[Rfam]
RNA: mir-191 microRNA precursor family
RNA sequence: AGCAUGAGAGCAGACAACGGAAUCCCAAAAGCAGCUGUUUUCAGAACAUCACAGCUGCCUUUGGAUUCUGUUACCUGUUCUCCUGCAC
Number, nucleotide and partner (000 for none) at each position: 001a000002g000003c000004a000005u000006g000007a000008g000009a079010g078011c077012a076013g075014a000015c000016a000017a071018c070019g069020g068021a067022a066023u065024c064025c063026c000027a062028a061029a000030a000031g058032c057033a056034g055035c054036u053037g052038u000039u000040u000041u000042c000043a000044g000045a000046a000047c000048a000049u000050c000051a000052c037053a036054g035055c034056u033057g032058c031059c000060u000061u028062u027063g025064g024065a023066u022067u021068c020069u019070g018071u017072u000073a000074c000075c013076u012077g011078u010079u009080c000081u000082c000083c000084u000085g000086c000087a000088c000